[Rfam]
RNA sequence: AGAGGCCUUCCGUGGCCAGGGUGGAAAGCUUGCCUCGUUUCUGCGGCAACAAAGCAAGCAUUCUGCCAGGCCGCUCACACUGCCCGC
Numbered sequence: 001a002g003a004g005g006c007c008u009u010c011c012g013u014g015g016c017c018a019g020g021g022u023g024g025a026a027a028g029c030u031u032g033c034c035u036c037g038u039u040u041c042u043g044c045g046g047c048a049a050c051a052a053a054g055c056a057a058g059c060a061u062u063c064u065g066c067c068a069g070g071c072c073g074c075u076c077a078c079a080c081u082g083c084c085c086g087c
Stems, first nucleotide, its partner, number of pairs: 004084003012074006020067007028059006037050003041046001
The family of this 87-nucleotide RNA sequence from Myotis myotis is "mir-9195 microRNA precursor family". Pairs were carried over by alignment from the consensus structure, which was predicted with RNAalifold. The source organism's lineage runs through Eukaryota, Dipnotetrapodomorpha, Amniota, Mammalia and Myotis. Rfam links the family to the GO terms RISC complex and miRNA-mediated post-transcriptional gene silencing.